[Rfam]
RNA sequence: AAUAGGAGAAUGAGAAAUCGAAUUUUUUCUUCUGAAUUUCAGCUUUUUCCUCAUGAAAAAUUUCAAAUCCAGCUAAAACUGCUGAAAAUUAAGAGAAAAAAAUUUGAUUUGUCAUUCUCUUAUU
Numbered sequence: 001a002a003u004a005g006g007a008g009a010a011u012g013a014g015a016a017a018u019c020g021a022a023u024u025u026u027u028u029c030u031u032c033u034g035a036a037u038u039u040c041a042g043c044u045u046u047u048u049c050c051u052c053a054u055g056a057a058a059a060a061u062u063u064c065a066a067a068u069c070c071a072g073c074u075a076a077a078a079c080u081g082c083u084g085a086a087a088a089u090u091a092a093g094a095g096a097a098a099a100a101a102a103u104u105u106g107a108u109u110u111g112u113c114a115u116u117c118u119c120u121u122a123u124u
Base pairs, nucleotide, nucleotide: 001124002123003122004121005120006119007118008117009116010115011114012113013112015110016109017108018107019106020105021104022103023101024100025099026098027097029095030094031093033091034090035089037087038086039085041083042082046078047077048076